[Rfam]
RNA sequence: AUCGCUGUCUCCAGCCUGCUGAAGCUCAGAGGGCUCUGAUUCAGAAAGAUCAUCGGAUCCGUCUGAGCUUGGCUGGUCGG
Numbered sequence: 001a002u003c004g005c006u007g008u009c010u011c012c013a014g015c016c017u018g019c020u021g022a023a024g025c026u027c028a029g030a031g032g033g034c035u036c037u038g039a040u041u042c043a044g045a046a047a048g049a050u051c052a053u054c055g056g057a058u059c060c061g062u063c064u065g066a067g068c069u070u071g072g073c074u075g076g077u078c079g080g
Stems, first nucleotide, its partner, number of pairs: 011080002014077003018073003022070009032060002035057006041049002
RNA: mir-127 microRNA precursor family
Organism: Sus scrofa